[Rfam]
RNA: PreQ1-II (pre queuosine) riboswitch aptamer
RNA sequence: UAUGGUACAAUGUAACCGUUGCUUUGCAACCCUUGGUGCUUAGUUCCCUUUCACCAAGCAUAUUAGAAACGUAGAUAGCUUUUGAGAGUUAUCCAGACGUUAAAGGAGAAAAAAUG
Numbered sequence: 001u002a003u004g005g006u007a008c009a010a011u012g013u014a015a016c017c018g019u020u021g022c023u024u025u026g027c028a029a030c031c032c033u034u035g036g037u038g039c040u041u042a043g044u045u046c047c048c049u050u051u052c053a054c055c056a057a058g059c060a061u062a063u064u065a066g067a068a069a070c071g072u073a074g075a076u077a078g079c080u081u082u083u084g085a086g087a088g089u090u091a092u093c094c095a096g097a098c099g100u101u102a103a104a105g106g107a108g109a110a111a112a113a114a115u116g
Stems, first nucleotide, its partner, number of pairs: 018030005032058007045108001047106004068101005